[Rfam]
RNA: Small nucleolar RNA SNORD28
RNA sequence: UCCAAGUGAUGACUGAAUGAAGUCUCGUUCGUCUGAAAAUCUUUGGAGAAUACUCCUUUUAGCAUGGUGGAGUUCUGAUGGAA
Numbered sequence: 001u002c003c004a005a006g007u008g009a010u011g012a013c014u015g016a017a018u019g020a021a022g023u024c025u026c027g028u029u030c031g032u033c034u035g036a037a038a039a040u041c042u043u044u045g046g047a048g049a050a051u052a053c054u055c056c057u058u059u060u061a062g063c064a065u066g067g068u069g070g071a072g073u074u075c076u077g078a079u080g081g082a083a
Base pairs, nucleotide, nucleotide: 001082002081003080004079